Background: gltS RNA: a 110-nucleotide sequence from Vibrio sp. 99-8-1. It is annotated as a cis-regulatory element. The match comes from Rfam's covariance-model search (86 bits).
[Rfam]
RNA sequence: UUUCACUAAGGAUUUGUUUUCUUCACAUAAAAAUUUCCUGUGAAGAACGGAAGGGAAUCAAACUCAUCACACAUGAUGAGUGAUGGAUUAACAACUAUAAAAAAGACAGG
Numbered sequence: 001u002u003u004c005a006c007u008a009a010g011g012a013u014u015u016g017u018u019u020u021c022u023u024c025a026c027a028u029a030a031a032a033a034u035u036u037c038c039u040g041u042g043a044a045g046a047a048c049g050g051a052a053g054g055g056a057a058u059c060a061a062a063c064u065c066a067u068c069a070c071a072c073a074u075g076a077u078g079a080g081u082g083a084u085g086g087a088u089u090a091a092c093a094a095c096u097a098u099a100a101a102a103a104a105g106a107c108a109g110g
Stems, first nucleotide, its partner, number of pairs: 021045007062081007
About this RNA:
Pairs were carried over by alignment from the consensus structure, which is taken from published work. NCBI's taxonomy places the organism under Bacteria, Pseudomonadota, Gammaproteobacteria, Vibrionales, Vibrio.